[Rfam]
Rfam assigns this 98-nucleotide RNA sequence from Amphimedon queenslandica to the family "Vault RNA". The match comes from Rfam's covariance-model search (42 bits). The source organism's lineage runs through Eukaryota, Metazoa, Demospongiae, Heteroscleromorpha and Amphimedon.

RNA sequence: UGGCUGGCUAAGUCAAGUGGAUACUUCGCAAUUUUAAUAAAGUAUGACUGACUUUAAUUCAAAUCCCUCUAGUUCCACUAACGCAAUCCAGCCUUUUU
Numbered sequence: 001u002g003g004c005u006g007g008c009u010a011a012g013u014c015a016a017g018u019g020g021a022u023a024c025u026u027c028g029c030a031a032u033u034u035u036a037a038u039a040a041a042g043u044a045u046g047a048c049u050g051a052c053u054u055u056a057a058u059u060c061a062a063a064u065c066c067c068u069c070u071a072g073u074u075c076c077a078c079u080a081a082c083g084c085a086a087u088c089c090a091g092c093c094u095u096u097u098u
Stems, first nucleotide, its partner, number of pairs: 002093006012082002015079001017078004025063002028060001